This 129-nucleotide sequence from Chinchilla lanigera belongs to the Rfam family "Small nucleolar RNA SNORA11". About the family: U107 (SNORA11) is a member of the H/ACA class of snoRNAs that guide the sites of modification of uridines to pseudouridines. Taxonomically the source falls in Chinchilla (Eukaryota, Bilateria, Craniata, Tetrapoda). Gene Ontology terms of the family: nucleolus and RNA processing.

RNA sequence: GGGCUGCGCUCAGAGCAGGGGGCCUGAAGAAUGGCUCCGCCCCCGUGCACACCACCCCACAGGGACCCAGGGUCGUUGUGACGAGCGACACGGAACUUGUGACUCCCCUCUCGCGGACCCCGGACACCC
Numbered sequence: 001g002g003g004c005u006g007c008g009c010u011c012a013g014a015g016c017a018g019g020g021g022g023c024c025u026g027a028a029g030a031a032u033g034g035c036u037c038c039g040c041c042c043c044c045g046u047g048c049a050c051a052c053c054a055c056c057c058c059a060c061a062g063g064g065a066c067c068c069a070g071g072g073u074c075g076u077u078g079u080g081a082c083g084a085g086c087g088a089c090a091c092g093g094a095a096c097u098u099g100u101g102a103c104u105c106c107c108c109u110c111u112c113g114c115g116g117a118c119c120c121c122g123g124a125c126a127c128c129c
Base pairs, nucleotide, nucleotide: 002057003056008053013048015046016045018043019042020041021040022035023034024033071121072120077115078114079113083110085105087103089101090100091099092098093097